[Rfam]
RNA sequence: ACUGGUGUAAGUGAUGACUGAAUUUUUUCCCCAUCAGAGCGACAGUGUUGAUUUCUUACUGUUAAAGCCAAACCAUAUCUGAUGCACCAGU
Numbered sequence: 001a002c003u004g005g006u007g008u009a010a011g012u013g014a015u016g017a018c019u020g021a022a023u024u025u026u027u028u029c030c031c032c033a034u035c036a037g038a039g040c041g042a043c044a045g046u047g048u049u050g051a052u053u054u055c056u057u058a059c060u061g062u063u064a065a066a067g068c069c070a071a072a073c074c075a076u077a078u079c080u081g082a083u084g085c086a087c088c089a090g091u
Stems, first nucleotide, its partner, number of pairs: 001091009
RNA: Small nucleolar SNORD12/SNORD106